[Rfam]
Small nucleolar RNA Z157/R69/R10: a 92-nucleotide sequence from Zea mays. The organism belongs to Zea, within Eukaryota. Rfam classes the family as a C/D-box small nucleolar RNA. A reference for the family is Chen et al. (2003), "The high diversity of snoRNAs in plants: identification and comparative study of 120 snoRNA genes from Oryza sativa", Nucleic Acids Res.
RNA sequence: UUUUGAAUGGUGAUGAACAACUGUGUUUUGGACUAGAGUUUCUGAUACUAGUGGUAGUUGAAGACCAAACCGUUAACUGUCUGAACUCAAAU
Numbered sequence: 001u002u003u004u005g006a007a008u009g010g011u012g013a014u015g016a017a018c019a020a021c022u023g024u025g026u027u028u029u030g031g032a033c034u035a036g037a038g039u040u041u042c043u044g045a046u047a048c049u050a051g052u053g054g055u056a057g058u059u060g061a062a063g064a065c066c067a068a069a070c071c072g073u074u075a076a077c078u079g080u081c082u083g084a085a086c087u088c089a090a091a092u
Stems, first nucleotide, its partner, number of pairs: 002091005008085001039063004046056004